[Rfam]
RNA sequence: UAUAGUGAUGAAUAUAAUCACAAUUGUCACUACCUCUGAGGCAAAUCUUUUCUGGUUUUGUUUUAAUUUACUUGUGUGUAUUAUUAAGCCUUGUG
Numbered sequence: 001u002a003u004a005g006u007g008a009u010g011a012a013u014a015u016a017a018u019c020a021c022a023a024u025u026g027u028c029a030c031u032a033c034c035u036c037u038g039a040g041g042c043a044a045a046u047c048u049u050u051u052c053u054g055g056u057u058u059u060g061u062u063u064u065a066a067u068u069u070a071c072u073u074g075u076g077u078g079u080a081u082u083a084u085u086a087a088g089c090c091u092u093g094u095g
Base pairs, nucleotide, nucleotide: 004031005030006029007028008027009026079095080094
This 95-nucleotide RNA from Brassica carinata belongs to the Rfam family "Small nucleolar RNA snoR17".
Gene Ontology terms of the family: RNA processing and nucleolus.
On this family, see Brown et al., RNA 2001: "Multiple snoRNA gene clusters from Arabidopsis".
By type it is a C/D-box small nucleolar RNA.
Pairs were carried over by alignment from the consensus structure, which was predicted with CMfinder.